The record is a 153-nucleotide RNA from Streptomyces longispororuber, which matches "c-di-AMP riboswitch aptamer (ydaO/yuaA leader)" in Rfam. Lineage of the source: Bacteria > Bacillati > Actinomycetota > Kitasatosporales > Streptomyces.

Nucleotides: 153
Stems, first nucleotide, its partner, number of pairs: 005020005022133006032070002071116003079090004093110004
Number, partner (000 for none) and nucleotide at each position: 001000g002000a003000c004000a005020u006019c007018u008017g009016u010000g011000c012000a013000c014000c015000g016009g017008c018007a019006g020005g021000a022133g023132u024131g025130g026129a027128g028000g029000a030000c031000c032070c033069a034000g035000c036000a037000a038000g039000g040000c041000g042000g043000g044000c045000c046000g047000u048000c049000c050000g051000g052000c053000u054000a055000g056000u057000c058000c059000g060000g061000u062000c063000g064000g065000u066000c067000c068000u069033u070032g071116g072115g073114g074000u075000g076000a077000a078000g079090u080089c081088g082087c083000a084000u085000g086000c087082g088081c089080g090079g091000c092000c093110g094109g095108g096107c097000a098000u099000c100000u101000u102000c103000g104000c105000c106000u107096g108095c109094c110093c111000g112000a113000a114073c115072c116071c117000g118000a119000c120000a121000g122000g123000u124000c125000a126000u127000c128027c129026u130025u131024c132023a133022c134000a135000g136000g137000c138000g139000g140000c141000u142000g143000a144000c145000g146000a147000a148000g149000g150000g151000u152000u153000g